[Rfam]
Shown here is a 155-nucleotide RNA sequence from Amborella trichopoda, a member of the family "MIR8565 microRNA precursor family". The match comes from Rfam's covariance-model search (148 bits).
RNA sequence: AUCCCACCCAUGUGUGUAGGACCCUAAAGGAUCACCAUUAAAGUUGGCACGGAUCUCUAGAAAAAUUAUCACAUGGGUGUGAGACUUGACUUUUCUAGAGAUUUGUGCCAACUUUAAUGGUGAUCCUUUAGGGGUCCUACACCUAUGGGUGGGAG
Numbered sequence: 001a002u003c004c005c006a007c008c009c010a011u012g013u014g015u016g017u018a019g020g021a022c023c024c025u026a027a028a029g030g031a032u033c034a035c036c037a038u039u040a041a042a043g044u045u046g047g048c049a050c051g052g053a054u055c056u057c058u059a060g061a062a063a064a065a066u067u068a069u070c071a072c073a074u075g076g077g078u079g080u081g082a083g084a085c086u087u088g089a090c091u092u093u094u095c096u097a098g099a100g101a102u103u104u105g106u107g108c109c110a111a112c113u114u115u116a117a118u119g120g121u122g123a124u125c126c127u128u129u130a131g132g133g134g135u136c137c138u139a140c141a142c143c144u145a146u147g148g149g150u151g152g153g154a155g
Base pairs, nucleotide, nucleotide: 002154003153004152005151006150007149008148009147010146011145012144015141016140017139018138019137020136021135022134023133024131025130026129027128028127030125031124032123034121035120036119037118038117039116040115041114042113043112044111045110046109047108048107049106050105051104052103053102054101055100056099057098058097059096060095061094062093063092064091066089067088068087069082070081071080072079073078

Rfam links the family to the GO terms RISC complex and miRNA-mediated post-transcriptional gene silencing. NCBI's taxonomy places the organism under Eukaryota, Streptophytina, Spermatophyta, Magnoliopsida, Amborella.